Rfam assigns this 131-nucleotide RNA from Iodobacter ciconiae to the family "Manganese Mn2+ riboswitch aptamer (yybP-ykoY)". Rfam describes the family as follows. This RNA was originally discovered in E. coli during a large scale screen and was named SraF. The family was later found to exist upstream of related families of protein genes in many bacteria, including the the yybP and ykoK genes in B. subtilis. The specific functions of these proteins are unknown, but this structured RNA element may be involved in their genetic regulation as a riboswitch. NCBI's taxonomy places the organism under Bacteria, Pseudomonadati, Pseudomonadota, Betaproteobacteria, Iodobacter.
RNA sequence: CUUCGGGGGAGUAGUCGCCUGUAUUCGCUUUUUGAAGCUUUUACAGGGAAUACGUCAACAUACUUGAAUCAUUAGAUUCAUGGCGUAUUCGGUUGGGGCGGUGUUCUGUGAGCAGACACGCAGUCCGGCUU
Numbered sequence: 001c002u003u004c005g006g007g008g009g010a011g012u013a014g015u016c017g018c019c020u021g022u023a024u025u026c027g028c029u030u031u032u033u034g035a036a037g038c039u040u041u042u043a044c045a046g047g048g049a050a051u052a053c054g055u056c057a058a059c060a061u062a063c064u065u066g067a068a069u070c071a072u073u074a075g076a077u078u079c080a081u082g083g084c085g086u087a088u089u090c091g092g093u094u095g096g097g098g099c100g101g102u103g104u105u106c107u108g109u110g111a112g113c114a115g116a117c118a119c120g121c122a123g124u125c126c127g128g129c130u131u
Stems, first nucleotide, its partner, number of pairs: 019046005048090010065080005
The family has 29 seed sequences and 1,126 matches in Rfam 15.1.